[Rfam]
RNA: mir-130 microRNA precursor family
RNA sequence: CUCUGCCUGACACUCUUUCCCUGUUGCACUACUGUGGGAGCUGCAAAAAGCAGUGCAAUAAUGAAAGGGCAUCAGUCAGUUGGG
Numbered sequence: 001c002u003c004u005g006c007c008u009g010a011c012a013c014u015c016u017u018u019c020c021c022u023g024u025u026g027c028a029c030u031a032c033u034g035u036g037g038g039a040g041c042u043g044c045a046a047a048a049a050g051c052a053g054u055g056c057a058a059u060a061a062u063g064a065a066a067g068g069g070c071a072u073c074a075g076u077c078a079g080u081u082g083g084g
Base pairs, nucleotide, nucleotide: 001084002083003082005077007075008074009073010072013069014068015067016066017065018064019063022060023059024058025057026056027055028054029053030052